U1 spliceosomal RNA: a 164-nucleotide RNA from Pomacea canaliculata. U1 is a small nuclear RNA (snRNA) component of the spliceosome (involved in pre-mRNA splicing). Its 5' end forms complementary base pairs with the 5' splice junction, thus defining the 5' donor site of an intron. There are significant differences in sequence and secondary structure between metazoan and yeast U1 snRNAs, the latter being much longer (568 nucleotides as compared to 164 nucleotides in human). The match comes from Rfam's covariance-model search (154 bits).
[Rfam]
RNA sequence: AUACUUACCUGGCACGGGAGGUACCCUGAUCACCAAGGGGGUCUUCCCAGGGCGAGGCCUGUCCAUUGCACUGCGGGCGGGUUGACCCCUGCGAUCACCCCAAAUGCGGGUGACUCGAGUGCGUAAUUUGUGCGUAAGGGGGACUGCGUUCGCGCUAUCCCCUG
Numbered sequence: 001a002u003a004c005u006u007a008c009c010u011g012g013c014a015c016g017g018g019a020g021g022u023a024c025c026c027u028g029a030u031c032a033c034c035a036a037g038g039g040g041g042u043c044u045u046c047c048c049a050g051g052g053c054g055a056g057g058c059c060u061g062u063c064c065a066u067u068g069c070a071c072u073g074c075g076g077g078c079g080g081g082u083u084g085a086c087c088c089c090u091g092c093g094a095u096c097a098c099c100c101c102a103a104a105u106g107c108g109g110g111u112g113a114c115u116c117g118a119g120u121g122c123g124u125a126a127u128u129u130g131u132g133c134g135u136a137a138g139g140g141g142g143a144c145u146g147c148g149u150u151c152g153c154g155c156u157a158u159c160c161c162c163u164g
Stems, first nucleotide, its partner, number of pairs: 012122004016048006023042005049090004054086001056083003060079005092117003095113003099109002137163005143158001146155003
Its Rfam clan is "U1 clan". The base pairs follow the family's consensus structure, which is taken from published work. It is annotated as a spliceosomal small nuclear RNA.